RNA sequence: AAGCAGUUGUACGACUGGCGGAAAAGCAGGGUUACCUGUGGGGAGUACAACGUUAUCCUGAUGCCGACCGCCUGGGCGACCGCU
Numbered sequence: 001a002a003g004c005a006g007u008u009g010u011a012c013g014a015c016u017g018g019c020g021g022a023a024a025a026g027c028a029g030g031g032u033u034a035c036c037u038g039u040g041g042g043g044a045g046u047a048c049a050a051c052g053u054u055a056u057c058c059u060g061a062u063g064c065c066g067a068c069c070g071c072c073u074g075g076g077c078g079a080c081c082g083c084u
Base pairs, nucleotide, nucleotide: 003053004052006051007050008049009048010047011046012045015042016041017072018071019070020069021068026039027038028037029036062078063077064076065075
RNA: ZMP/ZTP riboswitch aptamer (pfl RNA motif)